[Rfam]
RNA sequence: UUUUUAUAGAAUCAUGACUACCACGUGUCAUGUUCUGAUUGGUCAAUGAUAACAAUAAUGCAUUUCAUCUUUCAUUAAGUUGACAUCCAAUCAGAAUAUGACACGUGAGAGUCAUCAUCA
Numbered sequence: 001u002u003u004u005u006a007u008a009g010a011a012u013c014a015u016g017a018c019u020a021c022c023a024c025g026u027g028u029c030a031u032g033u034u035c036u037g038a039u040u041g042g043u044c045a046a047u048g049a050u051a052a053c054a055a056u057a058a059u060g061c062a063u064u065u066c067a068u069c070u071u072u073c074a075u076u077a078a079g080u081u082g083a084c085a086u087c088c089a090a091u092c093a094g095a096a097u098a099u100g101a102c103a104c105g106u107g108a109g110a111g112u113c114a115u116c117a118u119c120a
Stems, first nucleotide, its partner, number of pairs: 022107002025104002029100003033096004038091005